[Rfam]
RNA sequence: CCGAGUCCAUGAUGAUGUCAAGUUAUCCCUGUCUGAAGGCACAGAAGGGCCUUUCUGGGUGGAAUUUGGAUUUCUGAGACUCGG
Numbered sequence: 001c002c003g004a005g006u007c008c009a010u011g012a013u014g015a016u017g018u019c020a021a022g023u024u025a026u027c028c029c030u031g032u033c034u035g036a037a038g039g040c041a042c043a044g045a046a047g048g049g050c051c052u053u054u055c056u057g058g059g060u061g062g063a064a065u066u067u068g069g070a071u072u073u074c075u076g077a078g079a080c081u082c083g084g
Stems, first nucleotide, its partner, number of pairs: 001084007
RNA: Small nucleolar RNA R38
Organism: Rousettus aegyptiacus